Shown here is a 90-nucleotide RNA from Anolis carolinensis, a member of the family "Small nucleolar RNA SNORD60". The sequence is in the family's curated seed alignment. Taxonomically the source falls in Anolis (Eukaryota, Craniata, Teleostomi, Squamata).

RNA sequence: AGCCCGUGAUGAGCUCUUCCAUUUAUUUUCUGACACCUCGUCUGAACACUGCGCUUGCAGUGAACUGAUUAUGAACAUGAGCUGAGGCUU
Numbered sequence: 001a002g003c004c005c006g007u008g009a010u011g012a013g014c015u016c017u018u019c020c021a022u023u024u025a026u027u028u029u030c031u032g033a034c035a036c037c038u039c040g041u042c043u044g045a046a047c048a049c050u051g052c053g054c055u056u057g058c059a060g061u062g063a064a065c066u067g068a069u070u071a072u073g074a075a076c077a078u079g080a081g082c083u084g085a086g087g088c089u090u
Stems, first nucleotide, its partner, number of pairs: 001089004048061005